[Rfam]
RNA sequence: GCUUUCUCCCAGGUGGGACUGGGGGUAAAGCGAGCGUCGAACUGGUAGCCGCCGGUUCGGCGCUCAUUUUUUCGUUU
Numbered sequence: 001g002c003u004u005u006c007u008c009c010c011a012g013g014u015g016g017g018a019c020u021g022g023g024g025g026u027a028a029a030g031c032g033a034g035c036g037u038c039g040a041a042c043u044g045g046u047a048g049c050c051g052c053c054g055g056u057u058c059g060g061c062g063c064u065c066a067u068u069u070u071u072u073c074g075u076u077u
Base pairs, nucleotide, nucleotide: 001031002030003029006025007024008023009022010021011020012019033064034063035062036061037060038059039058040057041056042055043054044053045052046051

The record is a 77-nucleotide sequence from Corynebacterium jeikeium, which matches "ctRNA" in Rfam.
Rfam links the family to the GO term mRNA binding.
It is one of the family's seed sequences.
From the family's description: Rolling circle replication plasmids contain a number of mechanisms to maintain a low copy number. One of these methods is to transcribe a small RNA called ctRNA (for counter-transcribed RNA) than is transcribed on the opposite strand to RepB the replication initiation protein. ctRNA binds to the mRNA of repB and causes translational inhibition.
The family's consensus secondary structure is taken from published work.